[Rfam]
RNA sequence: GGCGGUUUUCGGGUGACACACCCCGCAACUGGGCUCCCUCCUCUCUGGUUCUGGGUGUGUCACCCGAGAACCACA
Numbered sequence: 001g002g003c004g005g006u007u008u009u010c011g012g013g014u015g016a017c018a019c020a021c022c023c024c025g026c027a028a029c030u031g032g033g034c035u036c037c038c039u040c041c042u043c044u045c046u047g048g049u050u051c052u053g054g055g056u057g058u059g060u061c062a063c064c065c066g067a068g069a070a071c072c073a074c075a
Stems, first nucleotide, its partner, number of pairs: 002074001005071013019057005025052001027050007

Rfam assigns this 75-nucleotide RNA sequence from Myotis brandtii to the family "mir-9223 microRNA precursor family". The source organism's lineage runs through Eukaryota, Bilateria, Laurasiatheria, Chiroptera and Myotis. A search with the family's covariance model found it, with a score of 77 bits.